[Rfam]
RNA sequence: UCACCACAAAACUCUUUCCCUGGGUGAAGGUUUUUUAAUAACCUUCACCAACUUAGGCUCUUUGGGAGAAUAAAGACCACACUCCACAGUGGACUAUAUCACUAAACAUACAGCCCAUUACUACUUUGUGGCCUACAUU
Number, nucleotide and partner (000 for none) at each position: 001u000002c000003a000004c065005c064006a063007c000008a061009a000010a000011a000012c000013u000014c000015u057016u056017u055018c000019c000020c000021u000022g052023g000024g000025u000026g048027a000028a000029g043030g042031u041032u040033u000034u000035u000036u000037a000038a000039u000040a032041a031042c030043c029044u000045u000046c000047a000048c026049c000050a000051a000052c022053u000054u000055a017056g016057g015058c000059u000060c000061u008062u000063u006064g005065g004066g000067a000068g000069a000070a000071u000072a000073a000074a134075g133076a000077c131078c130079a129080c128081a127082c000083u000084c000085c000086a000087c000088a119089g118090u117091g116092g115093a000094c113095u112096a000097u110098a109099u108100c000101a000102c000103u000104a000105a000106a000107c000108a099109u098110a097111c000112a095113g094114c000115c092116c091117a090118u089119u088120a000121c000122u000123a000124c000125u000126u000127u081128g080129u079130g078131g077132c000133c075134u074135a000136c000137a000138u000139u000
RNA: Small nucleolar RNA SNORA4
Organism: Myotis myotis